The record is a 261-nucleotide RNA sequence from Paenibacillus methanolicus, which matches "T-box leader" in Rfam.
RNA sequence: UCAAACGCGAUGACGAGAAGAGUAGAUAAACGCGGUCUUUCGCAGAGAGCUCCGGCAGCUGGAAAGGAGCAAAGAUCGCUUUAUUGAACCAAGUCUCCGAGCAGCCCGAUGGAACCGGUAUUGUCCGGUGAUGGCGGGACGGGUGCUCCCGUUACAGAGCUGGGGUAUAUGCAUGCCACGUCAUGCCGUACCUGACAAGGCUGAACCGGCGACGGAUCGGCAAAUUGGGGUGGCACCGCGACGAUCGAUCUCGCCCCCAAG
Number, nucleotide and partner (000 for none) at each position: 001u000002c000003a000004a000005a000006c000007g102008c101009g000010a000011u000012g000013a000014c000015g097016a096017g095018a094019a000020g000021a000022g000023u000024a000025g085026a084027u083028a082029a081030a080031c000032g000033c000034g000035g000036u000037c000038u073039u072040u071041c000042g000043c000044a000045g000046a000047g000048a000049g070050c069051u068052c067053c066054g000055g000056c000057a000058g000059c000060u000061g000062g000063a000064a000065a000066g053067g052068a051069g050070c049071a040072a039073a038074g000075a000076u000077c000078g000079c000080u030081u029082u028083a027084u026085u025086g000087a000088a000089c000090c000091a000092a000093g000094u018095c017096u016097c015098c000099g000100a000101g008102c007103a000104g000105c138106c137107c136108g135109a000110u133111g132112g000113a000114a000115c000116c000117g000118g000119u000120a000121u000122u000123g000124u000125c000126c000127g000128g000129u000130g000131a000132u111133g110134g000135c108136g107137g106138g105139a000140c151141g150142g149143g000144u000145g000146c000147u000148c000149c142150c141151g140152u000153u000154a000155c000156a000157g000158a000159g000160c000161u000162g000163g000164g000165g000166u000167a000168u000169a000170u000171g000172c000173a000174u000175g000176c000177c000178a000179c000180g000181u000182c000183a000184u000185g000186c000187c000188g000189u000190a000191c000192c000193u000194g000195a000196c000197a000198a000199g000200g221201c220202u219203g218204a217205a000206c215207c000208g000209g000210c000211g000212a000213c000214g000215g206216a000217u204218c203219g202220g201221c200222a000223a000224a000225u000226u000227g258228g257229g256230g255231u000232g000233g000234c000235a000236c000237c000238g254239c253240g252241a251242c000243g000244a000245u000246c000247g000248a000249u000250c000251u241252c240253g239254c238255c230256c229257c228258c227259a000260a000261g000
Description:
It scores 96 bits against the family's covariance model. About the family: Uncharged tRNA acts as the effector for transcription antitermination of genes in the T-box leader family. T-boxes are found upstream of many aminoacyl-tRNA synthetase genes and some amino acid biosynthetic genes usually in Gram-positive bacteria. The anticodon of a specific tRNA base pairs to a specifier sequence within the T-box motif, and the NCCA acceptor tail of the tRNA base pairs to a conserved bulge in the T-box antiterminator hairpin. The source organism's lineage runs through Bacteria, Bacilli, Caryophanales, Paenibacillaceae and Paenibacillus. Rfam links the family to the GO term tRNA binding.